[Rfam]
RNA sequence: UUCCACAGCUACUGGUCUGCAGCUGUCCUUAUGGUAGCAGUUGUAGCAUUCCUCUGUGGGAAAGAAACUGUUACACAAUUUAAUGCCUCUUUCUUAGCCACAUAGAAAGAGGAAUAUGCGUGACAGACACAA
Number, nucleotide and partner (000 for none) at each position: 001u000002u000003c059004c058005a057006c056007a000008g000009c000010u000011a000012c000013u000014g000015g000016u000017c046018u045019g044020c043021a042022g041023c040024u039025g038026u000027c000028c000029u000030u000031a000032u000033g000034g000035u000036a000037g000038c025039a024040g023041u022042u021043g020044u019045a018046g017047c000048a000049u000050u000051c000052c000053u000054c000055u000056g006057u005058g004059g003060g000061a000062a000063a000064g000065a000066a000067a000068c000069u000070g000071u000072u000073a121074c120075a000076c118077a117078a000079u000080u000081u000082a000083a000084u000085g000086c112087c111088u110089c109090u108091u107092u106093c105094u104095u000096a000097g000098c000099c000100a000101c000102a000103u000104a094105g093106a092107a091108a090109g089110a088111g087112g086113a000114a000115u000116a000117u077118g076119c000120g074121u073122g000123a000124c000125a000126g000127a000128c000129a000130c000131a000132a000